Annotation
T-box leader: a 238-nucleotide RNA from Ruminococcus flavefaciens. By type it is a cis-regulatory leader. A search with the family's covariance model found it, with a score of 119 bits. NCBI's taxonomy places the organism under Bacteria, Clostridia, Eubacteriales, Oscillospiraceae, Ruminococcus flavefaciens. The literature on the family includes a 1994 paper in J Bacteriol by Grundy et al., "Interaction between the acceptor end of tRNA and the T box stimulates antitermination in the Bacillus subtilis tyrS gene: a new role for the discriminator base". About the family: Uncharged tRNA acts as the effector for transcription antitermination of genes in the T-box leader family.
[Rfam]
RNA sequence: UCAAAGGCGAUGAUGAAGAGGAGUACGCAGGAGACCCGAUUUUCAGAGAGCUGCCGCAGGGUGAAAGGCAGUAUGAGGGGCUUGCGGAAGUAGCUUCGGAGCUUCGCGUGCCAACGGCUUUUGCUCAGUAGUAUGCGGCGUGAUCCUCACGUUACAGGGGAAGAAGCUCAUCGGCUUCGCAGAGUGCGGGAGAAUUCCCGAAUUCAGGUGGUAACACGGACUUUAGUUCGCCCUGGAC
Numbered sequence: 001u002c003a004a005a006g007g008c009g010a011u012g013a014u015g016a017a018g019a020g021g022a023g024u025a026c027g028c029a030g031g032a033g034a035c036c037c038g039a040u041u042u043u044c045a046g047a048g049a050g051c052u053g054c055c056g057c058a059g060g061g062u063g064a065a066a067g068g069c070a071g072u073a074u075g076a077g078g079g080g081c082u083u084g085c086g087g088a089a090g091u092a093g094c095u096u097c098g099g100a101g102c103u104u105c106g107c108g109u110g111c112c113a114a115c116g117g118c119u120u121u122u123g124c125u126c127a128g129u130a131g132u133a134u135g136c137g138g139c140g141u142g143a144u145c146c147u148c149a150c151g152u153u154a155c156a157g158g159g160g161a162a163g164a165a166g167c168u169c170a171u172c173g174g175c176u177u178c179g180c181a182g183a184g185u186g187c188g189g190g191a192g193a194a195u196u197c198c199c200g201a202a203u204u205c206a207g208g209u210g211g212u213a214a215c216a217c218g219g220a221c222u223u224u225a226g227u228u229c230g231c232c233c234u235g236g237a238c
Stems, first nucleotide, its partner, number of pairs: 007102002015097004026086006041073001050072006105137007139151003187200005205235004217230004